[Rfam]
A member of the RNA family "Bacterial small signal recognition particle RNA" from Methylophilales bacterium MBRS-H7, 98 nucleotides long.
The source organism's lineage runs through Bacteria, Pseudomonadati, Pseudomonadota, Betaproteobacteria and Nitrosomonadales.

RNA sequence: GGCGGGUCACCUCGCAUUGUAAGUUAGCCAACCUGGUCAGGUGCGGAAGCAAGCAGCCACAACUAAUGAAACAAGUGCCGAGACCAUGGCUCGCCUUA
Numbered sequence: 001g002g003c004g005g006g007u008c009a010c011c012u013c014g015c016a017u018u019g020u021a022a023g024u025u026a027g028c029c030a031a032c033c034u035g036g037u038c039a040g041g042u043g044c045g046g047a048a049g050c051a052a053g054c055a056g057c058c059a060c061a062a063c064u065a066a067u068g069a070a071a072c073a074a075g076u077g078c079c080g081a082g083a084c085c086a087u088g089g090c091u092c093g094c095c096u097u098a
Stems, first nucleotide, its partner, number of pairs: 004092005011082004015075001017074004023067005034059004042051003
A search with the family's covariance model found it, with a score of 66 bits.